The record is a 77-nucleotide sequence from Alligator mississippiensis, which matches "Mammalian CPEB3 ribozyme" in Rfam. A search with the family's covariance model found it, with a score of 45 bits.
RNA sequence: CAUGCCAUGCCAGAAGCCAUAGCAGAAGCACUCAUGACGCAGCCCUGUCAGAGUCUAACAAAUCUGCAAAUUCUGCU
Numbered sequence: 001c002a003u004g005c006c007a008u009g010c011c012a013g014a015a016g017c018c019a020u021a022g023c024a025g026a027a028g029c030a031c032u033c034a035u036g037a038c039g040c041a042g043c044c045c046u047g048u049c050a051g052a053g054u055c056u057a058a059c060a061a062a063u064c065u066g067c068a069a070a071u072u073c074u075g076c077u
Base pairs, nucleotide, nucleotide: 013045016043017042021077022076023075024074025073026072027071028040029039049066050065051064052063054061
Dot-bracket structure: ............[..[[...(((((((((.........)).]].]...((((.(......).))))....)))))))